[Rfam]
RNA sequence: UUGGAGAAAGACGGGGUGAGUUUAGUUGGUAGGCGGCUCGCUACGGUUAGGCGUAGAGAGUUGACUCCAACACGCCUGGGACACAUUCCCAGAAGUCUUUAGAAGAUUAUCACCUCCCAA
Dot-bracket structure: ((((........(((((((.....(((((....((((((.(((...).)).......))))))...))))).(..(((...........)))..)..............)))))))))))
Shown here is a 120-nucleotide RNA sequence from Diabrotica virgifera, a member of the family "R2 RNA element". Pairs were carried over by alignment from the consensus structure, which is taken from published work. Rfam describes the family as follows. This family represents the 3' UTR region of the R2 retrotransposable element. This family is known to interact with the R2-encoded reverse transcriptase in a reaction known as target primed reverse transcription (TPRT). Lineage of the source: Eukaryota > Opisthokonta > Eumetazoa > Altocrustacea > Diabrotica virgifera. A reference for the family is Ruschak et al. (2004), "Secondary structure models of the 3' untranslated regions of diverse R2 RNAs", RNA. Rfam classes the family as a cis-regulatory element. A search with the family's covariance model found it, with a score of 42 bits.